Description:
The record is a 67-nucleotide RNA from Culex quinquefasciatus, which matches "mir-2941 microRNA precursor family" in Rfam. The family's consensus secondary structure was predicted with RNAalifold. The family has 4 seed sequences and 6 matches in Rfam 15.1. Rfam's curators put it in the seed alignment.
RNA sequence: UACCCGUGGUGUUUAGUCGUAGUGCAUUGGUUUUUAGAACUGUAGUACGGCUAGAACUCCACGGAUA
Number, nucleotide and partner (000 for none) at each position: 001u067002a066003c000004c064005c063006g062007u061008g060009g059010u000011g057012u056013u055014u054015a052016g051017u050018c049019g048020u047021a046022g000023u044024g043025c042026a041027u000028u000029g000030g000031u000032u000033u000034u000035u000036a000037g000038a000039a000040c000041u026042g025043u024044a023045g000046u021047a020048c019049g018050g017051c016052u015053a000054g014055a013056a012057c011058u000059c009060c008061a007062c006063g005064g004065a000066u002067a001